The family of this 85-nucleotide RNA from Cetraspora pellucida is "Small nucleolar RNA R64/Z200 family".
The family's consensus secondary structure was predicted with PFOLD.
The match comes from Rfam's covariance-model search (46 bits).
A reference for the family is Galardi et al. (2002), "Purified box C/D snoRNPs are able to reproduce site-specific 2'-O-methylation of target RNA in vitro", Mol Cell Biol.
Rfam links the family to the GO terms RNA processing and nucleolus.
[Rfam]
RNA sequence: UGAUUCCGGUGAUGAUGUCAACUUUUUUACAUGUUAGACUUCUGAAAUUUUAAUUUGAAAGAAAAUACAUUAUACUGAGGAAUCA
Numbered sequence: 001u002g003a004u005u006c007c008g009g010u011g012a013u014g015a016u017g018u019c020a021a022c023u024u025u026u027u028u029a030c031a032u033g034u035u036a037g038a039c040u041u042c043u044g045a046a047a048u049u050u051u052a053a054u055u056u057g058a059a060a061g062a063a064a065a066u067a068c069a070u071u072a073u074a075c076u077g078a079g080g081a082a083u084c085a
Stems, first nucleotide, its partner, number of pairs: 001085007046055003
The organism belongs to Cetraspora, within Eukaryota.